[Rfam]
Rfam assigns this 95-nucleotide RNA from Acipenser ruthenus to the family "Small nucleolar RNA U83B". Lineage of the source: Eukaryota > Eumetazoa > Euteleostomi > Acipenseridae > Acipenser. Pairs were carried over by alignment from the consensus structure. About the family: U83B belongs to the C/D family of snoRNAs. U83B like U83A has no documented RNA target and they share the same host gene with the C/D box snoRNA U43 (RPL3). A reference for the family is Duga et al. (2000), "The intron-containing L3 ribosomal protein gene (RPL3): sequence analysis and identification of U43 and of two novel intronic small nucleolar RNAs", Biochim Biophys Acta. The family's RNA type in Rfam is C/D-box small nucleolar RNA. It scores 78 bits against the family's covariance model.

RNA sequence: UUGUUUCUGUGAUGAGAUCACGGAAUAUCGCGCCAGGCGUGGCGUCCGAAAACGCAUGAGGAGAUGUUCCAUGCUGCCUUCCUUCUGAGAAACAC
Numbered sequence: 001u002u003g004u005u006u007c008u009g010u011g012a013u014g015a016g017a018u019c020a021c022g023g024a025a026u027a028u029c030g031c032g033c034c035a036g037g038c039g040u041g042g043c044g045u046c047c048g049a050a051a052a053c054g055c056a057u058g059a060g061g062a063g064a065u066g067u068u069c070c071a072u073g074c075u076g077c078c079u080u081c082c083u084u085c086u087g088a089g090a091a092a093c094a095c
Stems, first nucleotide, its partner, number of pairs: 002094004